Shown here is an 88-nucleotide RNA from Pelotomaculum isophthalicicum, a member of the family "c-di-GMP-I riboswitch aptamer". NCBI's taxonomy places the organism under Bacteria, Bacillota, Eubacteriales, Pelotomaculum, Pelotomaculum isophthalicicum. About the family: GEMM was predicted in a large-scale screen for bacterial structured RNA regulatory elements. The base pairs follow the family's consensus structure, which is taken from published work. It scores 85 bits against the family's covariance model. Rfam 15.1 lists 5,092 matches to the family in 1,772 species.
RNA sequence: AUCUGAAAAAGGCAAACAUAGUGAAAACUAUGGACGCAAAACUACGGGUCUAAAGUGCUGCGGGCGCUAUGACAGCCGGGUUGCCAGG
Numbered sequence: 001a002u003c004u005g006a007a008a009a010a011g012g013c014a015a016a017c018a019u020a021g022u023g024a025a026a027a028c029u030a031u032g033g034a035c036g037c038a039a040a041a042c043u044a045c046g047g048g049u050c051u052a053a054a055g056u057g058c059u060g061c062g063g064g065c066g067c068u069a070u071g072a073c074a075g076c077c078g079g080g081u082u083g084c085c086a087g088g
Stems, first nucleotide, its partner, number of pairs: 012037002017032006040082004045078003048073003055067004